[Rfam]
RNA sequence: CCAAACGCGGUUCGCAAUCCUCCCGCGACAACAAAACUAGGAACCC
Numbered sequence: 001c002c003a004a005a006c007g008c009g010g011u012u013c014g015c016a017a018u019c020c021u022c023c024c025g026c027g028a029c030a031a032c033a034a035a036a037c038u039a040g041g042a043a044c045c046c
Stems, first nucleotide, its partner, number of pairs: 006027005016038001
Shown here is a 46-nucleotide sequence from Neisseria leonii, a member of the family "PreQ1 (pre queuosine) riboswitch aptamer". Rfam 15.1 lists 873 matches to the family in 692 species. This family is a bacterial riboswitch that binds to the metabolite preQ1, an intermediate in the biosynthesis of the modified nucleoside queuosine from GTP. One example of this riboswitch is located in the leader of the Bacillus subtilis ykvJKLM (queCDEF) operon which encodes four genes necessary for queuosine production. A reference for the family is Spitale et al. (2009), "The structural basis for recognition of the PreQ0 metabolite by an unusually small riboswitch aptamer domain", J Biol Chem.